A member of the RNA family "LOOT RNA", 138 nucleotides long.
Nucleotides: 138
Stems, first nucleotide, its partner, number of pairs: 002037003009031010047094011059081001063077004096117005102111002118138008
Number, partner (000 for none) and nucleotide at each position: 001000a002037a003036c004035c005000u006000a007000a008000c009031c010030c011029g012028u013027a014026g015025a016024u017023u018022c019000u020000g021000a022018g023017g024016a025015u026014u027013u028012g029011c030010g031009g032000u033000a034000u035004g036003g037002u038000c039000a040000c041000a042000u043000a044000a045000a046000g047094c048093c049092c050091a051090c052089g053088c054087g055086a056085g057084u058000a059081g060000a061000a062000a063077c064076g065075g066074c067000c068000a069000u070000a071000u072000a073000a074066g075065c076064c077063g078000g079000c080000a081059u082000u083000c084057a085056c086055u087054c088053g089052c090051g091050u092049g093048g094047g095000u096117c097116u098115g099114u100113a101000c102111c103110u104000c105000g106000a107000a108000a109000g110103g111102g112000a113100u114099a115098c116097a117096g118138g119137a120136u121135a122134g123133u124132u125131c126000c127000g128000a129000a130000a131125g132124g133123g134122c135121u136120a137119u138118c
The sequence is in the family's curated seed alignment.